Annotation
A member of the RNA family "sucA-II RNA" from Pseudomonas indica, 225 nucleotides long. The base pairs follow the family's consensus structure, which is taken from published work.
RNA sequence: CUGCGGCGCUGGCGUUAACCCGGCGCCGUAGUUUUAAUCGAGCCGUAGCCCACAAAGCCGCGGUUCUCAUUUGAAAAAUAUGAUGACCAGCAGGGGCAUCCGGGCUGGUACCCGGACUAUCUGCGGGAUCCGUGGUGGCUUGACCGAAGUCGCUGCUUCAGGACUUGGGAAAAUGGCCAGGCUGCGGUUUCCACGCCGGUGGUGUCCCCUUACCGAGGGUGACCA
Numbered sequence: 001c002u003g004c005g006g007c008g009c010u011g012g013c014g015u016u017a018a019c020c021c022g023g024c025g026c027c028g029u030a031g032u033u034u035u036a037a038u039c040g041a042g043c044c045g046u047a048g049c050c051c052a053c054a055a056a057g058c059c060g061c062g063g064u065u066c067u068c069a070u071u072u073g074a075a076a077a078a079u080a081u082g083a084u085g086a087c088c089a090g091c092a093g094g095g096g097c098a099u100c101c102g103g104g105c106u107g108g109u110a111c112c113c114g115g116a117c118u119a120u121c122u123g124c125g126g127g128a129u130c131c132g133u134g135g136u137g138g139c140u141u142g143a144c145c146g147a148a149g150u151c152g153c154u155g156c157u158u159c160a161g162g163a164c165u166u167g168g169g170a171a172a173a174u175g176g177c178c179a180g181g182c183u184g185c186g187g188u189u190u191c192c193a194c195g196c197c198g199g200u201g202g203u204g205u206c207c208c209c210u211u212a213c214c215g216a217g218g219g220u221g222a223c224c225a
Stems, first nucleotide, its partner, number of pairs: 001031012040066006048058002092210005097204002099116006117202005123196003127191002130187002134183003137178002139175001141173001144169001148165004
The family's RNA type in Rfam is cis-regulatory element.